Fluoride riboswitch aptamer (crcB RNA motif): a 60-nucleotide RNA sequence from Clostridium paraputrificum. The organism belongs to Clostridium, within Bacteria. The base pairs follow the family's consensus structure, which is taken from published work. A search with the family's covariance model found it, with a score of 55 bits.

RNA sequence: AAUAAUAAGGGCGAUGGAGUUCGCCAUUAAAUGCUUUAUGCUAAUGACUCCUACAAAGUA
Numbered sequence: 001a002a003u004a005a006u007a008a009g010g011g012c013g014a015u016g017g018a019g020u021u022c023g024c025c026a027u028u029a030a031a032u033g034c035u036u037u038a039u040g041c042u043a044a045u046g047a048c049u050c051c052u053a054c055a056a057a058g059u060a
Stems, first nucleotide, its partner, number of pairs: 010025004016051006033041002